RNA sequence: AGUUUCUCGUUGCCGUUCAUCAGACAGUUUUUGUUAAAAAAAAAAACUGUCUGAUGAACGGCAACGAGAAACU
Numbered sequence: 001a002g003u004u005u006c007u008c009g010u011u012g013c014c015g016u017u018c019a020u021c022a023g024a025c026a027g028u029u030u031u032u033g034u035u036a037a038a039a040a041a042a043a044a045a046a047c048u049g050u051c052u053g054a055u056g057a058a059c060g061g062c063a064a065c066g067a068g069a070a071a072c073u
Base pairs, nucleotide, nucleotide: 004070005069006068007067008066009065010064011063012062013061014060015059017057018056019055020054023051024050028046029045030044031043
RNA: mir-980 microRNA precursor family